Background
This 114-nucleotide sequence from Sulfoacidibacillus thermotolerans belongs to the Rfam family "S10-Clostridia ribosomal protein leader". The organism belongs to Sulfoacidibacillus, within Bacteria. Pairs were carried over by alignment from the consensus structure, which is taken from published work. A search with the family's covariance model found it, with a score of 39 bits.

RNA sequence: UGACUGCGAUGAGGCAAAAGGUUGCUCAUGUACCUGAGCCAUAUAGGUACCAAUGAGGAAAUUUUUGCGGAGUAUGUCCAGCCGGUCGAUGAAACCGGAACAAUUGGGCGAUGA
Number, nucleotide and partner (000 for none) at each position: 001u000002g000003a000004c000005u000006g000007c000008g000009a000010u000011g000012a000013g000014g068015c067016a066017a000018a065019a064020g063021g062022u000023u000024g000025c057026u056027c055028a054029u053030g000031u000032a000033c000034c000035u000036g000037a000038g000039c000040c000041a000042u000043a000044u000045a000046g000047g000048u000049a000050c000051c000052a000053a029054u028055g027056a026057g025058g000059a000060a000061a000062u021063u020064u019065u018066u016067g015068c014069g000070g000071a000072g000073u000074a000075u113076g112077u111078c110079c000080a000081g109082c108083c107084g000085g000086u000087c000088g000089a000090u000091g000092a000093a000094a000095c000096c000097g000098g000099a000100a000101c000102a000103a000104u000105u000106g000107g083108g082109c081110g078111a077112u076113g075114a000